[Rfam]
The record is a 74-nucleotide RNA sequence from Ornithorhynchus anatinus, which matches "mir-1421 microRNA precursor family" in Rfam. Rfam 15.1 lists 110 matches to the family in 14 species. NCBI's taxonomy places the organism under Eukaryota, Opisthokonta, Metazoa, Tetrapoda, Ornithorhynchus. It scores 60 bits against the family's covariance model. Rfam links the family to the GO terms miRNA-mediated post-transcriptional gene silencing and RISC complex. The base pairs follow the family's consensus structure, which was predicted with RNAalifold.
RNA sequence: CAGCGUGUGAACGUCUCACGUUGUGCUGUGUGAUGGCGGAAUACACUGCAUAGCGUGUGACUUCCCUACACAGU
Numbered sequence: 001c002a003g004c005g006u007g008u009g010a011a012c013g014u015c016u017c018a019c020g021u022u023g024u025g026c027u028g029u030g031u032g033a034u035g036g037c038g039g040a041a042u043a044c045a046c047u048g049c050a051u052a053g054c055g056u057g058u059g060a061c062u063u064c065c066c067u068a069c070a071c072a073g074u
Base pairs, nucleotide, nucleotide: 003071005069006068007067009065011063013061014060015059017057018056019055020054021053023051024050025049026048